[Rfam]
RNA sequence: CUUGAUCGAGCCCAGCCACAGCGGACGGUCGGCGGGCCGUCCCUCGCCAUACGUGGCGAGCAGCGCCUGCGCCUC
Number, nucleotide and partner (000 for none) at each position: 001c000002u000003u000004g000005a000006u000007c000008g000009a000010g000011c000012c000013c000014a000015g000016c024017c023018a000019c000020a000021g000022c000023g017024g016025a000026c000027g000028g000029u000030c000031g000032g070033c069034g000035g000036g000037c000038c065039g064040u000041c000042c000043c060044u059045c058046g000047c056048c055049a054050u000051a000052c000053g000054u049055g048056g047057c000058g045059a044060g043061c000062a000063g000064c039065g038066c000067c000068u000069g033070c032071g000072c000073c000074u000075c000
RNA: ASpks TB sRNA
Organism: Micromonospora endolithica